[Rfam]
RNA sequence: GGCGUAAAGCGUACGUAGGCGGCGUGGUAAGUCGGAGGUUAAAGGCUACGGCUCAACCGUAGUAGGGCCUUUGAUACUAUCAUGCUAGAGUGUCGGAGGGGGUAGCGGAAUUCCCUGUGUAGCGGUGAAAUGCGUAGAUAUAGGGAAGAACACCAGUAGCGAAGGCGGCUACCUGGCCGAUCACUGACGCUGAGGUACGAGAGCGUGGGUAGCAAACAGGAUUAGAUACCCUGGUAGUCCACGCUGUAAACGAUGGACGCUAGGUGUUGGAGGAACCGACCCCUUCAGUGCCGAAGCCAACGCGUUAAGCGUCCCGCCUGGGGAGUACGACCGCAAGGUUAAAACUCAAAGGAAU
Numbered sequence: 001g002g003c004g005u006a007a008a009g010c011g012u013a014c015g016u017a018g019g020c021g022g023c024g025u026g027g028u029a030a031g032u033c034g035g036a037g038g039u040u041a042a043a044g045g046c047u048a049c050g051g052c053u054c055a056a057c058c059g060u061a062g063u064a065g066g067g068c069c070u071u072u073g074a075u076a077c078u079a080u081c082a083u084g085c086u087a088g089a090g091u092g093u094c095g096g097a098g099g100g101g102g103u104a105g106c107g108g109a110a111u112u113c114c115c116u117g118u119g120u121a122g123c124g125g126u127g128a129a130a131u132g133c134g135u136a137g138a139u140a141u142a143g144g145g146a147a148g149a150a151c152a153c154c155a156g157u158a159g160c161g162a163a164g165g166c167g168g169c170u171a172c173c174u175g176g177c178c179g180a181u182c183a184c185u186g187a188c189g190c191u192g193a194g195g196u197a198c199g200a201g202a203g204c205g206u207g208g209g210u211a212g213c214a215a216a217c218a219g220g221a222u223u224a225g226a227u228a229c230c231c232u233g234g235u236a237g238u239c240c241a242c243g244c245u246g247u248a249a250a251c252g253a254u255g256g257a258c259g260c261u262a263g264g265u266g267u268u269g270g271a272g273g274a275a276c277c278g279a280c281c282c283c284u285u286c287a288g289u290g291c292c293g294a295a296g297c298c299a300a301c302g303c304g305u306u307a308a309g310c311g312u313c314c315c316g317c318c319u320g321g322g323g324a325g326u327a328c329g330a331c332c333g334c335a336a337g338g339u340u341a342a343a344a345c346u347c348a349a350a351g352g353a354a355u
Base pairs, nucleotide, nucleotide: 001318002317003316009315011198012197013196014195016192018191019190020189022085023084024083025082026081027080028079030078031077032074033073034072035071036070037069038068039067040066045063046062047061048060049059050058051057089185090184091183092181093180094179095178096177100174101173102172103171104170105169106168107151111147112146113145114144115143116142117141118140122133123132124131159166160165203244204243205242206241207240208239212238213237217233218232219231220230255314256313257312258311259310260309263292264291265290266289267288268287269286270285271284272283273282296303297302320347321346322345329340330339331338332337
The family of this 355-nucleotide part of an RNA from Flexistipes sinusarabici is "Bacterial small subunit ribosomal RNA". The family is grouped with related families in Rfam's "SSU clan". Pairs were carried over by alignment from the consensus structure, which is taken from published work. Rfam links the family to the GO terms structural constituent of ribosome and ribosome. It is one of the family's seed sequences.